The record is a 437-nucleotide RNA from Alternaria alternata, which matches "RNase MRP" in Rfam. The organism belongs to Alternaria alternata complex, within Eukaryota. Pairs were carried over by alignment from the consensus structure, which is taken from published work. It is annotated as a ribozyme.
RNA sequence: UCCUCGCUCAAAGAAUCGCAACGAAGCACACGCACGGAGCGCCUCUCGAGGUGUCUCUUUUCGCGCUUUGGGAGAAAGUCCCCGGACAACGAUCUUCGCGAUCGCACUUUCAGCAAUGAACCGCCAUAGAAGCCGCGGCUUCCAUUACCGACUACGACACUUUCCGCGUCUCUUUACCCGUUCGCACUCCUUUUCGUCGGCUAUCUGGAGGCUGUGAGUGGAGGGGCUGGCACCUGGAUGACGAUAUGAGUCCGUUGGCUACCUUGCUCACUUGCUGAAGAGCGCCUGGCAAUCUGGAGGAGGAGGGAGACAUCGGGGAGGGCCAGGUAUGGAGGGUCUUUUCGUCCAGUUUGAUGGUUAUGCGAUUGCCUUCCUGCACUUUGAUAAAACAAGGUGACAUGGAUGGUAACUCAAUGGGGCUUAUUCUUGAUGCGAGG
Numbered sequence: 001u002c003c004u005c006g007c008u009c010a011a012a013g014a015a016u017c018g019c020a021a022c023g024a025a026g027c028a029c030a031c032g033c034a035c036g037g038a039g040c041g042c043c044u045c046u047c048g049a050g051g052u053g054u055c056u057c058u059u060u061u062c063g064c065g066c067u068u069u070g071g072g073a074g075a076a077a078g079u080c081c082c083c084g085g086a087c088a089a090c091g092a093u094c095u096u097c098g099c100g101a102u103c104g105c106a107c108u109u110u111c112a113g114c115a116a117u118g119a120a121c122c123g124c125c126a127u128a129g130a131a132g133c134c135g136c137g138g139c140u141u142c143c144a145u146u147a148c149c150g151a152c153u154a155c156g157a158c159a160c161u162u163u164c165c166g167c168g169u170c171u172c173u174u175u176a177c178c179c180g181u182u183c184g185c186a187c188u189c190c191u192u193u194u195c196g197u198c199g200g201c202u203a204u205c206u207g208g209a210g211g212c213u214g215u216g217a218g219u220g221g222a223g224g225g226g227c228u229g230g231c232a233c234c235u236g237g238a239u240g241a242c243g244a245u246a247u248g249a250g251u252c253c254g255u256u257g258g259c260u261a262c263c264u265u266g267c268u269c270a271c272u273u274g275c276u277g278a279a280g281a282g283c284g285c286c287u288g289g290c291a292a293u294c295u296g297g298a299g300g301a302g303g304a305g306g307g308a309g310a311c312a313u314c315g316g317g318g319a320g321g322g323c324c325a326g327g328u329a330u331g332g333a334g335g336g337u338c339u340u341u342u343c344g345u346c347c348a349g350u351u352u353g354a355u356g357g358u359u360a361u362g363c364g365a366u367u368g369c370c371u372u373c374c375u376g377c378a379c380u381u382u383g384a385u386a387a388a389a390c391a392a393g394g395u396g397a398c399a400u401g402g403a404u405g406g407u408a409a410c411u412c413a414a415u416g417g418g419g420c421u422u423a424u425u426c427u428u429g430a431u432g433c434g435a436g437g
Base pairs, nucleotide, nucleotide: 002437003436004435005434006433007432008430009429010428011427014367015366016365017364018363019362022072023069024068025067026066027065037054039052040051043048076422077421078420080419081418082417083416109120110119111118112117246339248337252335253334255332256331257330261328262327263326264325273322275320276319306311369406370405372403373402374401